This 82-nucleotide RNA from Bicyclus anynana belongs to the Rfam family "mir-989 microRNA precursor family".
[Rfam]
RNA sequence: CAGGGUUGAAAUAGCCAUUACCUCACUAUCACGUGGUCUUGUAGUAUAACGUGUGAUGUGCCGUAAUGGGAUUUUCGGCCCA
Numbered sequence: 001c002a003g004g005g006u007u008g009a010a011a012u013a014g015c016c017a018u019u020a021c022c023u024c025a026c027u028a029u030c031a032c033g034u035g036g037u038c039u040u041g042u043a044g045u046a047u048a049a050c051g052u053g054u055g056a057u058g059u060g061c062c063g064u065a066a067u068g069g070g071a072u073u074u075u076c077g078g079c080c081c082a
Stems, first nucleotide, its partner, number of pairs: 003081008015069007024060003029056004034051002
Its family is annotated with miRNA-mediated post-transcriptional gene silencing, RISC complex and border follicle cell migration in the Gene Ontology. The source organism's lineage runs through Eukaryota, Dicondylia, Papilionoidea, Satyrini and Bicyclus.